About this RNA
This 66-nucleotide RNA sequence belongs to the Rfam family "DUF805 RNA". The family is grouped with related families in Rfam's "DUF805 clan". Rfam 15.1 lists 281 matches to the family in 219 species.
RNA sequence: AAAAAGUGGAGACCAGAAACCACUCGAAAAACGGGCGAUACAAAAAAGUAAAUUAUUAUGAAAUUC
Number, nucleotide and partner (000 for none) at each position: 001a000002a000003a000004a000005a000006g023007u022008g021009g020010a000011g000012a000013c000014c000015a000016g000017a000018a000019a000020c009021c008022a007023c006024u000025c000026g000027a000028a000029a000030a000031a000032c000033g000034g000035g049036c048037g000038a000039u000040a000041c060042a059043a000044a000045a000046a000047a000048g036049u035050a000051a000052a000053u000054u000055a000056u000057u000058a000059u042060g041061a000062a000063a000064u000065u000066c000